[Rfam]
RNA sequence: UGGAAGCGCUCACCAAACAGGGACGAAAGUAGAAAGAACAAAGACGACAUGGCGCUUUCUUUCUACUUUCGUCCCUGUUCUGUGAGCGCUUCCACCUUCAAGAUGAACAGCUACCAACUAGCCCAACUGUCCGUUCUG
Numbered sequence: 001u002g003g004a005a006g007c008g009c010u011c012a013c014c015a016a017a018c019a020g021g022g023a024c025g026a027a028a029g030u031a032g033a034a035a036g037a038a039c040a041a042a043g044a045c046g047a048c049a050u051g052g053c054g055c056u057u058u059c060u061u062u063c064u065a066c067u068u069u070c071g072u073c074c075c076u077g078u079u080c081u082g083u084g085a086g087c088g089c090u091u092c093c094a095c096c097u098u099c100a101a102g103a104u105g106a107a108c109a110g111c112u113a114c115c116a117a118c119u120a121g122c123c124c125a126a127c128u129g130u131c132c133g134u135u136c137u138g
Stems, first nucleotide, its partner, number of pairs: 002093012015081001017079001018077005024071004029066001031064008120135003125130001
A member of the RNA family "Actinobacteria sRNA Ms_IGR-7", 138 nucleotides long. It is annotated as a small RNA. For this family Rfam cites "Identification of small RNAs in Mycobacterium smegmatis using heterologous Hfq" (Li et al., RNA, 2013).